[Rfam]
RNA sequence: AGGGGUUUAGUAUAACGGCAGUACCGCAGUCUCCAAAACUGCUUGUGAGGGUUCGAUUCCUUUAACCCCUG
Numbered sequence: 001a002g003g004g005g006u007u008u009a010g011u012a013u014a015a016c017g018g019c020a021g022u023a024c025c026g027c028a029g030u031c032u033c034c035a036a037a038a039c040u041g042c043u044u045g046u047g048a049g050g051g052u053u054c055g056a057u058u059c060c061u062u063u064a065a066c067c068c069c070u071g
Stems, first nucleotide, its partner, number of pairs: 001070007010024004026042005047063005